The family of this 137-nucleotide sequence from Tractidigestivibacter scatoligenes is "FMN riboswitch aptamer (RFN element)".
NCBI's taxonomy places the organism under Bacteria, Actinomycetota, Coriobacteriia, Atopobiaceae, Tractidigestivibacter.
From the family's description: The RFN element is a highly conserved domain that is found frequently in the 5'-untranslated regions of prokaryotic mRNAs that encode for flavin mononucleotide (FMN) biosynthesis and transport proteins.
Pairs were carried over by alignment from the consensus structure, which is taken from published work.
RNA sequence: UGACAGUUUCAGGGCGGGGUGAGAUUCCCCACUGGUGGUGACGCGCAACCGCGCGAAGUCCGCGACCCGCUAAAAAGGCGGCUGACCUGGUGAGAUUCCAGGACCAACGGUUACAGUCCGGAUGGAAGAAACGGAGA
Dot-bracket structure: ...(.(((((......(((.......))).[[((((((...................[[))))...((...........))....(((((.......)))))]])).(((.....]]))).......))))).)...
Numbered sequence: 001u002g003a004c005a006g007u008u009u010c011a012g013g014g015c016g017g018g019g020u021g022a023g024a025u026u027c028c029c030c031a032c033u034g035g036u037g038g039u040g041a042c043g044c045g046c047a048a049c050c051g052c053g054c055g056a057a058g059u060c061c062g063c064g065a066c067c068c069g070c071u072a073a074a075a076a077g078g079c080g081g082c083u084g085a086c087c088u089g090g091u092g093a094g095a096u097u098c099c100a101g102g103a104c105c106a107a108c109g110g111u112u113a114c115a116g117u118c119c120g121g122a123u124g125g126a127a128g129a130a131a132c133g134g135a136g137a
Stems, first nucleotide, its partner, number of pairs: 004134001006132005017029003031117002033106002035063004058104002067081002086102005108120003